RNA: ZMP/ZTP riboswitch aptamer (pfl RNA motif)
Organism: Actinomycetales bacterium JB111
RNA sequence: UGACCGUGUCGUGACUGGCGUUGUGGGUGGACCAACCACCGGGGAGCGACACGCCGCGGUGCAUGCCGCGGAGCAGUCUUCGGCCGUUCGCCUGGGUCGAGGUC
Numbered sequence: 001u002g003a004c005c006g007u008g009u010c011g012u013g014a015c016u017g018g019c020g021u022u023g024u025g026g027g028u029g030g031a032c033c034a035a036c037c038a039c040c041g042g043g044g045a046g047c048g049a050c051a052c053g054c055c056g057c058g059g060u061g062c063a064u065g066c067c068g069c070g071g072a073g074c075a076g077u078c079u080u081c082g083g084c085c086g087u088u089c090g091c092c093u094g095g096g097u098c099g100a101g102g103u104c
Stems, first nucleotide, its partner, number of pairs: 005053008015043002017092004027039004081099005